[Rfam]
RNA sequence: ACUGUAUAGAGUUUGAUCCUGGCUCAGAUUGAACGCUAGCGGUAUGCCUUACACAUGCAAGUCGUACGGCAGCACGGGCUUAGGCCUGGUGGCGAGUGGCGAACGGGUGAGUAACGCCCCGGAACGUGCCUUGUAGUGGGGGAUAGCCUGGCGAAAGCCAGAUUAAUACCGCAUGAAGCCGCACAGCAUGGCGCGGUGAAAGUGGGGGAUUCAAGCCUCACGCUACUGGAUCGGCCGGGGUCUGAUUAGCUAGUUGGCGGGGUAAUGGCCCACCAAGGCUGAGAUCAGUAGCUGGUCUGAGAGGACGAUCAGCCACACUGGGACUGAGACACGGCCCAGACUCCUACGGGAGGCAGCAGUGGGGAAUCUUGGACAAUGGGCGCAAGCCUGAUCCAGCAAUGCCGCGUGUGUGAAGAAGGCCUUAGGGUUGUAAAGCACUUUUGUUCGGGAUGAAGGAGGGCGUGCAAACACCAUGCCCUCUUGACGAUACCGAAAGAAUAAGCACCGGCUAACUACGUGCCAGCAGCCGCGGUAAUACGUAGGGUGCGAGCGUUAAUCGGAAUCACUG
Dot-bracket structure: ........(((((.......))))).((((.((((((.(((((((((....(((.(((..(((..((.((..(((((((....))))).))))..)))))......(((......(((((((..((...((.((((.(.((....(.(((((....))))).).....)).).....(((((.(......).)))))....((((((........)))))).)))).))..)).)))))))(((....(((..((((.(((.......))).)))))))......)))..((((((((....))))...))))))).(((((............))))).((((....))))...)))))).).....(.(((...(((((....))))).)))).)).))))))..((((......((((....)))).....)))).....(((((...(.....(((................))).....)....))))).......(((((......(((((.....((....)).......)))))))))).))))))))))..........
The record is a 568-nucleotide part of an RNA from Candidatus Tremblayella princeps, which matches "Bacterial small subunit ribosomal RNA" in Rfam. NCBI's taxonomy places the organism under Bacteria, Pseudomonadati, Pseudomonadota, Betaproteobacteria, Candidatus Tremblayella. Rfam's curators put it in the seed alignment.